[Rfam]
RNA sequence: AUAUUUUAGUCGGGGUGCUGCCUGAAUGGGCGGCUGAGAAACACCCGUUGAACCUGAUACAGUUAAUACUGGCGUAGGAAACUAAUGAUUAUGAACC
Numbered sequence: 001a002u003a004u005u006u007u008a009g010u011c012g013g014g015g016u017g018c019u020g021c022c023u024g025a026a027u028g029g030g031c032g033g034c035u036g037a038g039a040a041a042c043a044c045c046c047g048u049u050g051a052a053c054c055u056g057a058u059a060c061a062g063u064u065a066a067u068a069c070u071g072g073c074g075u076a077g078g079a080a081a082c083u084a085a086u087g088a089u090u091a092u093g094a095a096c097c
Base pairs, nucleotide, nucleotide: 006085007084008083009082010081011047012046013045014044016041017034018033019032020031021030053078054077055076056075060071061070062069
Annotation:
Shown here is a 97-nucleotide RNA sequence from Alysiella filiformis, a member of the family "TPP riboswitch aptamer (THI element)". Pairs were carried over by alignment from the consensus structure, which is taken from published work.